[Rfam]
Nucleotides: 074
Base pairs, nucleotide, nucleotide: 010041013040014039018074019073020072021071023069024068025037026036027035046063047062048061049060051058052057
Number, partner (000 for none) and nucleotide at each position: 001000a002000c003000u004000g005000c006000c007000a008000u009000a010041g011000c012000a013040g014039c015000c016000a017000u018074a019073g020072c021071a022000g023069a024068a025037g026036c027035a028000c029000u030000c031000a032000c033000g034000u035027u036026g037025c038000a039014g040013c041010c042000c043000u044000g045000u046063c047062a048061g049060a050000u051058u052057u053000u054000a055000a056000u057052g058051a059000c060049u061048c062047u063046g064000u065000a066000a067000a068024u069023u070000a071021u072020g073019c074018u
Mammalian CPEB3 ribozyme: a 74-nucleotide RNA sequence from Crocodylus porosus. Taxonomically the source falls in Crocodylus (Eukaryota, Dipnotetrapodomorpha, Sauria, Archosauria). The match comes from Rfam's covariance-model search (45 bits).